[Rfam]
RNA sequence: AGCGACCGGCCGGACACGUAUGUGCCCGGCCCACAAGUGGAGGCUCCGAUCUCCCACCCGACCGCCCUCCGGGGAGGCGGGUCAUCCGGUCAGGCGGUAUCCAUCGUUCCGUACGGACGAUGGAAGGCCGCCGAGUUGCGCCCCGCGGUUCGCACGCGGCGGUGCUCCGGUUGUUUUGGAGCCCCUGCCUGUGCCCGGCGGGGCAUUUUUC
Numbered sequence: 001a002g003c004g005a006c007c008g009g010c011c012g013g014a015c016a017c018g019u020a021u022g023u024g025c026c027c028g029g030c031c032c033a034c035a036a037g038u039g040g041a042g043g044c045u046c047c048g049a050u051c052u053c054c055c056a057c058c059c060g061a062c063c064g065c066c067c068u069c070c071g072g073g074g075a076g077g078c079g080g081g082u083c084a085u086c087c088g089g090u091c092a093g094g095c096g097g098u099a100u101c102c103a104u105c106g107u108u109c110c111g112u113a114c115g116g117a118c119g120a121u122g123g124a125a126g127g128c129c130g131c132c133g134a135g136u137u138g139c140g141c142c143c144c145g146c147g148g149u150u151c152g153c154a155c156g157c158g159g160c161g162g163u164g165c166u167c168c169g170g171u172u173g174u175u176u177u178g179g180a181g182c183c184c185c186u187g188c189c190u191g192u193g194c195c196c197g198g199c200g201g202g203g204c205a206u207u208u209u210u211c
Stems, first nucleotide, its partner, number of pairs: 004091006012027002028083005034060001037057004041052002062077002065074003093132005101123008140204006146197003155193003158189003161185002164182005
Shown here is a 211-nucleotide RNA from Streptomyces sp. Ag109_G2-6, a member of the family "Streptomyces RNA 1601". The organism belongs to Streptomyces, within Bacteria. The match comes from Rfam's covariance-model search (154 bits).